[Rfam]
RNA: BsrG
Organism: Chengkuizengella marina
RNA sequence: AAUAGAAAGGUAUAUAGAUUCAAGGGCAGGUUGGCGUACUUCCUCAUGAGAGGAGGUGAUGCUUAUGAAAGUACAUGAAGCAUUAUCUUUAUUCCUUAAUUUGGGAUAUUUAUCCUAACGUUACUUUCUUUUAUUGUGGUUUUAAUCACCGUAAUAAAAUAGACCUCCCUUGAGUUAGCCACUUCCGGAGGUCUAUUUCUAGAAGACGCCGACUGCCCUUGGGCAAUCUUUGUACAUUUUAACCGUAGACGUUCGCAGCGUCUGCG
Numbered sequence: 001a002a003u004a005g006a007a008a009g010g011u012a013u014a015u016a017g018a019u020u021c022a023a024g025g026g027c028a029g030g031u032u033g034g035c036g037u038a039c040u041u042c043c044u045c046a047u048g049a050g051a052g053g054a055g056g057u058g059a060u061g062c063u064u065a066u067g068a069a070a071g072u073a074c075a076u077g078a079a080g081c082a083u084u085a086u087c088u089u090u091a092u093u094c095c096u097u098a099a100u101u102u103g104g105g106a107u108a109u110u111u112a113u114c115c116u117a118a119c120g121u122u123a124c125u126u127u128c129u130u131u132u133a134u135u136g137u138g139g140u141u142u143u144a145a146u147c148a149c150c151g152u153a154a155u156a157a158a159a160u161a162g163a164c165c166u167c168c169c170u171u172g173a174g175u176u177a178g179c180c181a182c183u184u185c186c187g188g189a190g191g192u193c194u195a196u197u198u199c200u201a202g203a204a205g206a207c208g209c210c211g212a213c214u215g216c217c218c219u220u221g222g223g224c225a226a227u228c229u230u231u232g233u234a235c236a237u238u239u240u241a242a243c244c245g246u247a248g249a250c251g252u253u254c255g256c257a258g259c260g261u262c263u264g265c266g
Stems, first nucleotide, its partner, number of pairs: 001238002003234002007230003011226001015212001017210001019174008029164001031162002037058002040055005067128007080094001082093001104119001214225004244266010